Background: A member of the RNA family "Vault RNA" from Etheostoma spectabile, 91 nucleotides long. The family's RNA type in Rfam is non-coding RNA gene. It scores 34 bits against the family's covariance model. This family of RNAs are found as part of the enigmatic vault ribonucleoprotein complex. The complex consists of a major vault protein (MVP), two minor vault proteins (VPARP and TEP1), and several small untranslated RNA molecules. It has been suggested that the vault complex is involved in drug resistance.

RNA sequence: GCAGCGGUUUAGCUCAGUGGUUACUUCAAUCAACUGACGAUACCUAGCCACCGACCUCCGGUCAGGAGUCGACGCGCUGUCCGCUGUUUUC
Numbered sequence: 001g002c003a004g005c006g007g008u009u010u011a012g013c014u015c016a017g018u019g020g021u022u023a024c025u026u027c028a029a030u031c032a033a034c035u036g037a038c039g040a041u042a043c044c045u046a047g048c049c050a051c052c053g054a055c056c057u058c059c060g061g062u063c064a065g066g067a068g069u070c071g072a073c074g075c076g077c078u079g080u081c082c083g084c085u086g087u088u089u090u091c
Stems, first nucleotide, its partner, number of pairs: 002086006012075002017073002020070001025067003